[Rfam]
RNA sequence: CAAGUACUGGUCUCAGCAGACUGAGGAGAGCACCGCAGUGGUCACCACACAGUCUGCUGAGGUUGGAGCUGC
Numbered sequence: 001c002a003a004g005u006a007c008u009g010g011u012c013u014c015a016g017c018a019g020a021c022u023g024a025g026g027a028g029a030g031c032a033c034c035g036c037a038g039u040g041g042u043c044a045c046c047a048c049a050c051a052g053u054c055u056g057c058u059g060a061g062g063u064u065g066g067a068g069c070u071g072c
Stems, first nucleotide, its partner, number of pairs: 003070003007066017025046002028043002031040003
Shown here is a 72-nucleotide RNA from Macaca mulatta, a member of the family "mir-622 microRNA precursor family". The source organism's lineage runs through Eukaryota, Deuterostomia, Gnathostomata, Boreoeutheria and Macaca. Pairs were carried over by alignment from the consensus structure, which was predicted with RNAalifold.